[Rfam]
Shown here is a 350-nucleotide RNA from an uncultured bacterium, a member of the family "transfer-messenger RNA". It is annotated as a non-coding RNA gene.
RNA sequence: GCUGAUUCUGGAUUCGACGGGACACUCGAAACCCAAGGUGCAUGCCGAGGUGCGGUAGGCCUCGUUAAUAAACCGCAAAAAAUAGUCGCAAACGACGAAACCUACGCUUUAGCAGCUUAAUAACCUGCUCGGAGCCCUUCUACCCUAGCUUGCCUAUGUCCUAGGGGAUUGGAAGGUCAUCUUUCAUAGGAUCGCGUGGAAACCUUGUCUGGGGUGGAAGCGUUAAAACUAAUCAGACUAGUUAUUCAGUGGCGUGUCGGUCCGCAGCUGGAUGGUGAAUGUAAAGAUUCGACUAAGCAUGUAGUACUGAGGAUGUAGGUUUUUCGGACGCGGGUUCAACUCCCGCCAGC
Numbered sequence: 001g002c003u004g005a006u007u008c009u010g011g012a013u014u015c016g017a018c019g020g021g022a023c024a025c026u027c028g029a030a031a032c033c034c035a036a037g038g039u040g041c042a043u044g045c046c047g048a049g050g051u052g053c054g055g056u057a058g059g060c061c062u063c064g065u066u067a068a069u070a071a072a073c074c075g076c077a078a079a080a081a082a083u084a085g086u087c088g089c090a091a092a093c094g095a096c097g098a099a100a101c102c103u104a105c106g107c108u109u110u111a112g113c114a115g116c117u118u119a120a121u122a123a124c125c126u127g128c129u130c131g132g133a134g135c136c137c138u139u140c141u142a143c144c145c146u147a148g149c150u151u152g153c154c155u156a157u158g159u160c161c162u163a164g165g166g167g168a169u170u171g172g173a174a175g176g177u178c179a180u181c182u183u184u185c186a187u188a189g190g191a192u193c194g195c196g197u198g199g200a201a202a203c204c205u206u207g208u209c210u211g212g213g214g215u216g217g218a219a220g221c222g223u224u225a226a227a228a229c230u231a232a233u234c235a236g237a238c239u240a241g242u243u244a245u246u247c248a249g250u251g252g253c254g255u256g257u258c259g260g261u262c263c264g265c266a267g268c269u270g271g272a273u274g275g276u277g278a279a280u281g282u283a284a285a286g287a288u289u290c291g292a293c294u295a296a297g298c299a300u301g302u303a304g305u306a307c308u309g310a311g312g313a314u315g316u317a318g319g320u321u322u323u324u325c326g327g328a329c330g331c332g333g334g335u336u337c338a339a340c341u342c343c344c345g346c347c348a349g350c
Stems, first nucleotide, its partner, number of pairs: 001350004018326005024320003031314001033312002037308003041301005046064005051077006108133003112128004136176006144167003149164002155190001157188003194223004207238005241276010252265003256293004260288003330346005